Listeria sRNA sbrA: a 68-nucleotide RNA from Heyndrickxia ginsengihumi. It is annotated as a small RNA. The organism belongs to Heyndrickxia, within Bacteria.
RNA sequence: UUACAUCUAGAUCCAUACCCCUAAACUCCCUAGAUGUUUUGGAUAGCUUUAUUUGCUAUCCAAUUUUU
Numbered sequence: 001u002u003a004c005a006u007c008u009a010g011a012u013c014c015a016u017a018c019c020c021c022u023a024a025a026c027u028c029c030c031u032a033g034a035u036g037u038u039u040u041g042g043a044u045a046g047c048u049u050u051a052u053u054u055g056c057u058a059u060c061c062a063a064u065u066u067u068u
Base pairs, nucleotide, nucleotide: 004036005035006034007033008032009031041061042060043059044058045057046056047055